[Rfam]
RNA sequence: CAUCCCAAUGAUGAAUGAUUCGUAAAUUAAAAGUAGUGGACUGACAUCUAUUGAUGAGCAAUGAUAUCUCUGAGGGAUG
Numbered sequence: 001c002a003u004c005c006c007a008a009u010g011a012u013g014a015a016u017g018a019u020u021c022g023u024a025a026a027u028u029a030a031a032a033g034u035a036g037u038g039g040a041c042u043g044a045c046a047u048c049u050a051u052u053g054a055u056g057a058g059c060a061a062u063g064a065u066a067u068c069u070c071u072g073a074g075g076g077a078u079g
Stems, first nucleotide, its partner, number of pairs: 001079006
The family of this 79-nucleotide RNA sequence from Rhamnella rubrinervis is "Small nucleolar RNA R21". For this family Rfam cites "Identification of 66 box C/D snoRNAs in Arabidopsis thaliana: extensive gene duplications generated multiple isoforms predicting new ribosomal RNA 2'-O-methylation sites" (Barneche et al., J Mol Biol, 2001).